[Rfam]
RNA sequence: AGGCAGCCUCUUCGCUAAAGUUUAAUGGCGAAGAAGGUGUUGUACUGCUCGUAAAUUAAUGUCUUUUGCUCUUCAGACUUGCUGAGAUGCCUUUGAAGCUGGUCUAGUAAGCUCAAGUACAUU
Numbered sequence: 001a002g003g004c005a006g007c008c009u010c011u012u013c014g015c016u017a018a019a020g021u022u023u024a025a026u027g028g029c030g031a032a033g034a035a036g037g038u039g040u041u042g043u044a045c046u047g048c049u050c051g052u053a054a055a056u057u058a059a060u061g062u063c064u065u066u067u068g069c070u071c072u073u074c075a076g077a078c079u080u081g082c083u084g085a086g087a088u089g090c091c092u093u094u095g096a097a098g099c100u101g102g103u104c105u106a107g108u109a110a111g112c113u114c115a116a117g118u119a120c121a122u123u
Base pairs, nucleotide, nucleotide: 002041003040004039005038007037008036009034010033011032012031013030014029015028016027017026063117064116065115068112069111070110075105076104077103078102079101081099082098083097086091

About this RNA
Small nucleolar RNA snoR77: a 123-nucleotide RNA sequence from Quercus lobata.